[Rfam]
This 209-nucleotide RNA sequence from Rhododendron simsii belongs to the Rfam family "Early nodulin 40". Pairs were carried over by alignment from the consensus structure, which is taken from published work. The source organism's lineage runs through Eukaryota, Viridiplantae, Embryophyta, Gunneridae and Rhododendron. The match comes from Rfam's covariance-model search (45 bits). Rfam classes the family as a non-coding RNA gene.

RNA sequence: AUGGAUACUAUAGUGGGGGAAGAAUCCAUACUGACAUGGGUCGUGAAAGUUAAAGCAGAGCAAUUUGGAGAUGGUUUAUCCAAUUCACUUCUCCAGAAUCCAAACAGAUUUUAUUUGGUGCCUCAGCCAAAUUCAGCUGAAAAGAGUUGCGUAAGGCCUCGCAAGCCGGCAAUUCGCAGAAAGGGCAAUGGACUCUUGAUUGAAGUCUU
Numbered sequence: 001a002u003g004g005a006u007a008c009u010a011u012a013g014u015g016g017g018g019g020a021a022g023a024a025u026c027c028a029u030a031c032u033g034a035c036a037u038g039g040g041u042c043g044u045g046a047a048a049g050u051u052a053a054a055g056c057a058g059a060g061c062a063a064u065u066u067g068g069a070g071a072u073g074g075u076u077u078a079u080c081c082a083a084u085u086c087a088c089u090u091c092u093c094c095a096g097a098a099u100c101c102a103a104a105c106a107g108a109u110u111u112u113a114u115u116u117g118g119u120g121c122c123u124c125a126g127c128c129a130a131a132u133u134c135a136g137c138u139g140a141a142a143a144g145a146g147u148u149g150c151g152u153a154a155g156g157c158c159u160c161g162c163a164a165g166c167c168g169g170c171a172a173u174u175c176g177c178a179g180a181a182a183g184g185g186c187a188a189u190g191g192a193c194u195c196u197u198g199a200u201u202g203a204a205g206u207c208u209u
Stems, first nucleotide, its partner, number of pairs: 067092001107166001109164002112161001121156003191207004